[Rfam]
RNA sequence: GGCGCGUGACUUGCUAGGUACACCUCAACCCUGCAGUCAACGCUGAUUGCAUGCAUACGACAAAGGCGCCGU
Numbered sequence: 001g002g003c004g005c006g007u008g009a010c011u012u013g014c015u016a017g018g019u020a021c022a023c024c025u026c027a028a029c030c031c032u033g034c035a036g037u038c039a040a041c042g043c044u045g046a047u048u049g050c051a052u053g054c055a056u057a058c059g060a061c062a063a064a065g066g067c068g069c070c071g072u
Stems, first nucleotide, its partner, number of pairs: 032051007